[Rfam]
RNA sequence: GUGAAAAAGAAGAAGCGCCCGCUUCUCACCUGAUCGACGCAUAGGCUGUUGGCAGGUAUGUGAGAUUACUGUGCAGUAGCUCGGUGUCGAAAACAGGGAGAAGUGUGGGCGUAUUCGUCCACACUUUUUUAUAUUCUU
Numbered sequence: 001g002u003g004a005a006a007a008a009g010a011a012g013a014a015g016c017g018c019c020c021g022c023u024u025c026u027c028a029c030c031u032g033a034u035c036g037a038c039g040c041a042u043a044g045g046c047u048g049u050u051g052g053c054a055g056g057u058a059u060g061u062g063a064g065a066u067u068a069c070u071g072u073g074c075a076g077u078a079g080c081u082c083g084g085u086g087u088c089g090a091a092a093a094c095a096g097g098g099a100g101a102a103g104u105g106u107g108g109g110c111g112u113a114u115u116c117g118u119c120c121a122c123a124c125u126u127u128u129u130u131a132u133a134u135u136c137u138u
Stems, first nucleotide, its partner, number of pairs: 011026006028057003036050003039046002102125010
The record is a 138-nucleotide sequence from Polycladospora coralii, which matches "Ribosomal protein L20 leader" in Rfam. This family is a putative r-protein leader autoregulatory structure found in B. subtilis and other low-GC Gram-positive bacteria. It is located in the 5' untranslated regions of mRNAs encoding initiation factor 3 followed by ribosomal proteins L35 and L20 (infC-rpmI-rplT). A Rho-independent transcription terminator structure that is probably involved in regulation is included at the 3' end.